Shown here is a 124-nucleotide RNA from Castanea mollissima, a member of the family "Small nucleolar RNA snoR111". The family has 6 seed sequences and 533 matches in Rfam 15.1. Lineage of the source: Eukaryota > Tracheophyta > Magnoliopsida > rosids > Castanea. Pairs were carried over by alignment from the consensus structure, which was predicted with WAR.
[Rfam]
RNA sequence: GAGAAAUGAGAGACUGUAUGUCUCUGCAUUGAGGAGAACACCGAGGUAGAACAAAAUCAACGGCCGAGAUAUCGUUUUAGUCAUCAUUUUAUGGAUUGGCGAUCUGAUUGUUGCUCGUCCACAU
Numbered sequence: 001g002a003g004a005a006a007u008g009a010g011a012g013a014c015u016g017u018a019u020g021u022c023u024c025u026g027c028a029u030u031g032a033g034g035a036g037a038a039c040a041c042c043g044a045g046g047u048a049g050a051a052c053a054a055a056a057u058c059a060a061c062g063g064c065c066g067a068g069a070u071a072u073c074g075u076u077u078u079a080g081u082c083a084u085c086a087u088u089u090u091a092u093g094g095a096u097u098g099g100c101g102a103u104c105u106g107a108u109u110g111u112u113g114c115u116c117g118u119c120c121a122c123a124u
Stems, first nucleotide, its partner, number of pairs: 005030004010024005062120002065117004071108004080103003084099003088095002